[Rfam]
tRNA: an 82-nucleotide RNA from Aspergillus nidulans.
It is one of the family's seed sequences.
The source organism's lineage runs through Eukaryota, Fungi, Eurotiomycetes, Aspergillaceae and Aspergillus subgen. Nidulantes.
By type it is a transfer RNA.
RNA sequence: AUGGGUAUGCUGAAAUAAGGUAAACAGGUUCCGCUUAGGACGGAAUAGUCAAACUUUGCAAGUUCAAGUCUUGUUACCCGUA
Numbered sequence: 001a002u003g004g005g006u007a008u009g010c011u012g013a014a015a016u017a018a019g020g021u022a023a024a025c026a027g028g029u030u031c032c033g034c035u036u037a038g039g040a041c042g043g044a045a046u047a048g049u050c051a052a053a054c055u056u057u058g059c060a061a062g063u064u065c066a067a068g069u070c071u072u073g074u075u076a077c078c079c080g081u082a
Stems, first nucleotide, its partner, number of pairs: 001081007010027003029045005058074005